[Rfam]
RNA sequence: GGCCGGGCGUCCGUAGUGAUACAAGACCCUUCGGGGGAAAGCUAUGGGCCGUCCUACAGCGGUGUUCAAGCCCCCGGCCGCCUCUCU
Number, nucleotide and partner (000 for none) at each position: 001g079002g078003c077004c076005g075006g074007g073008c000009g071010u000011c000012c046013g045014u044015a043016g000017u041018g000019a000020u000021a000022c000023a000024a000025g000026a000027c036028c035029c034030u000031u000032c000033g000034g029035g028036g027037g000038a000039a000040a000041g017042c000043u015044a014045u013046g012047g000048g063049c062050c061051g060052u059053c000054c000055u000056a000057c000058a000059g052060c051061g050062g049063u048064g000065u000066u000067c000068a000069a000070g000071c009072c000073c007074c006075c005076g004077g003078c002079c001080g000081c000082c000083u000084c000085u000086c000087u000